RNA sequence: GGGGAGAGGCUUAGAAUCCCCGUGGACCUUGUGUAAAUAGUAGUGUCUUUGGCCGGGCAUUGCGGUUUGUGAAUC
Numbered sequence: 001g002g003g004g005a006g007a008g009g010c011u012u013a014g015a016a017u018c019c020c021c022g023u024g025g026a027c028c029u030u031g032u033g034u035a036a037a038u039a040g041u042a043g044u045g046u047c048u049u050u051g052g053c054c055g056g057g058c059a060u061u062g063c064g065g066u067u068u069g070u071g072a073a074u075c
Base pairs, nucleotide, nucleotide: 001021002020003019004018005017034069035068036067037066038065040063041062042061043060044059045058046057047056048055